[Rfam]
RNA sequence: UAACCUUGAAUAUGCUUACCGUAGACAGUAGGUGCCUUAGUGCUUAAUUCCCUACCGAGGUGUUGUGAUAGAAACAAGAAGUAACGAGCUCGCUCGUAUAACUUUCGUUUUAUCAAGCCUUCGUGAUUCUGCGGAGGCUUUUCUAAUGCCUGC
Numbered sequence: 001u002a003a004c005c006u007u008g009a010a011u012a013u014g015c016u017u018a019c020c021g022u023a024g025a026c027a028g029u030a031g032g033u034g035c036c037u038u039a040g041u042g043c044u045u046a047a048u049u050c051c052c053u054a055c056c057g058a059g060g061u062g063u064u065g066u067g068a069u070a071g072a073a074a075c076a077a078g079a080a081g082u083a084a085c086g087a088g089c090u091c092g093c094u095c096g097u098a099u100a101a102c103u104u105u106c107g108u109u110u111u112a113u114c115a116a117g118c119c120u121u122c123g124u125g126a127u128u129c130u131g132c133g134g135a136g137g138c139u140u141u142u143c144u145a146a147u148g149c150c151u152g153c
Stems, first nucleotide, its partner, number of pairs: 028055005034043002117138009
Ribosomal protein L10 leader: a 153-nucleotide RNA from Paenibacillus sp. FSL H7-0737. NCBI's taxonomy places the organism under Bacteria, Bacillati, Bacillota, Paenibacillaceae, Paenibacillus. It is annotated as a cis-regulatory leader. It scores 70 bits against the family's covariance model. This family is a putative r-protein leader autoregulatory structure found in B. subtilis and other low-GC Gram-positive bacteria. It is located in the 5' untranslated regions of mRNAs encoding ribosomal proteins L10 and L12 (rplJ-rplL).